[Rfam]
RNA sequence: UUGAGGGGUACCCGAGGCGUACGAUCGAGCCUACGACGGGUUCGGGAGUGACUGAUCCAAAGAGUCGGCAUUGGGGUGAAAG
Numbered sequence: 001u002u003g004a005g006g007g008g009u010a011c012c013c014g015a016g017g018c019g020u021a022c023g024a025u026c027g028a029g030c031c032u033a034c035g036a037c038g039g040g041u042u043c044g045g046g047a048g049u050g051a052c053u054g055a056u057c058c059a060a061a062g063a064g065u066c067g068g069c070a071u072u073g074g075g076g077u078g079a080a081a082g
Stems, first nucleotide, its partner, number of pairs: 018035004023030001052075001053073003058068001
The family of this 82-nucleotide sequence from Mycolicibacterium mageritense is "Mycobacterium sRNA Ms_IGR-2". Rfam's curators put it in the seed alignment. The pairing is the family consensus, mapped onto this sequence.